[Rfam]
Rfam assigns this 66-nucleotide sequence from Pseudorhodobacter turbinis to the family "L2-Alphaproteobacteria ribosomal protein leader".
RNA sequence: GGGGAUCUACGGAGCCCUAUAACCUCGGCCACACGUUGUGGCCCUCUAGCUGACGGAAGACAGAGA
Dot-bracket structure: ((((.(.(...).)))))........(((((((...))))))).......................
The family's consensus secondary structure is taken from published work.
On this family, see Eckert and Weinberg, BMC Microbiol 2020: "Discovery of 20 novel ribosomal leader candidates in bacteria and archaea".
It scores 52 bits against the family's covariance model.